[Rfam]
RNA sequence: UUUUCUUACAUCUCGUCCUCCCGGCUCAGUUAUCAUAUACGUCUUCAAAUUAUAGUGCCUUCACACUGGAAGGAAAGCCCCUCUACCUAACAAGAUUAAGUGAUAAGCCAAAAAUGUUUGAUUUCUAAAACAAACUUUCGUUAAGUGACUCCA
Numbered sequence: 001u002u003u004u005c006u007u008a009c010a011u012c013u014c015g016u017c018c019u020c021c022c023g024g025c026u027c028a029g030u031u032a033u034c035a036u037a038u039a040c041g042u043c044u045u046c047a048a049a050u051u052a053u054a055g056u057g058c059c060u061u062c063a064c065a066c067u068g069g070a071a072g073g074a075a076a077g078c079c080c081c082u083c084u085a086c087c088u089a090a091c092a093a094g095a096u097u098a099a100g101u102g103a104u105a106a107g108c109c110a111a112a113a114a115u116g117u118u119u120g121a122u123u124u125c126u127a128a129a130a131c132a133a134a135c136u137u138u139c140g141u142u143a144a145g146u147g148a149c150u151c152c153a
Stems, first nucleotide, its partner, number of pairs: 099150003103146002109140001111138002
Shown here is a 153-nucleotide RNA from Eucalyptus grandis, a member of the family "Antisense RNA which regulates isiA expression". The family's consensus secondary structure was predicted with PFOLD. NCBI's taxonomy places the organism under Eukaryota, Streptophytina, Euphyllophyta, rosids, Eucalyptus. The family has 308 seed sequences and 3,397 matches in Rfam 15.1.